[Rfam]
RNA sequence: UUUCUCGUGAGGGAUGCAGUGAAGAAAGCGAGACUACAAAAUUCGGUACUGACGUACAGAAACGGAAUAAGAGGCUAUGAUAGGUGGAUAAGUAUGCACAUCAAUACAAAGUCCGUGGCCAACAAACCUAUUAGAGUAGAUUUCGCAGGCAUCGAAUGAAAGAGUAUGUU
Numbered sequence: 001u002u003u004c005u006c007g008u009g010a011g012g013g014a015u016g017c018a019g020u021g022a023a024g025a026a027a028g029c030g031a032g033a034c035u036a037c038a039a040a041a042u043u044c045g046g047u048a049c050u051g052a053c054g055u056a057c058a059g060a061a062a063c064g065g066a067a068u069a070a071g072a073g074g075c076u077a078u079g080a081u082a083g084g085u086g087g088a089u090a091a092g093u094a095u096g097c098a099c100a101u102c103a104a105u106a107c108a109a110a111g112u113c114c115g116u117g118g119c120c121a122a123c124a125a126a127c128c129u130a131u132u133a134g135a136g137u138a139g140a141u142u143u144c145g146c147a148g149g150c151a152u153c154g155a156a157u158g159a160a161a162g163a164g165u166a167u168g169u170u
Stems, first nucleotide, its partner, number of pairs: 001016001003014004028170001031167001037162001041157006049148003063145006074137003078133007086114004092107004